[Rfam]
RNA sequence: CUUCAGCGACCCCAGCCACAGCGGCCGGUCCCGGUCCUGGCCGUACGUGGCCAGCAACGCCUGCGCCUC
Numbered sequence: 001c002u003u004c005a006g007c008g009a010c011c012c013c014a015g016c017c018a019c020a021g022c023g024g025c026c027g028g029u030c031c032c033g034g035u036c037c038u039g040g041c042c043g044u045a046c047g048u049g050g051c052c053a054g055c056a057a058c059g060c061c062u063g064c065g066c067c068u069c
Stems, first nucleotide, its partner, number of pairs: 015025003031065001032059002037054003041050003

Shown here is a 69-nucleotide RNA from Kibdelosporangium aridum, a member of the family "ASpks TB sRNA".
A search with the family's covariance model found it, with a score of 80 bits.
On this family, see Arnvig and Young, Mol Microbiol 2009: "Identification of small RNAs in Mycobacterium tuberculosis".
It is annotated as an antisense RNA.
The family's consensus secondary structure is taken from published work.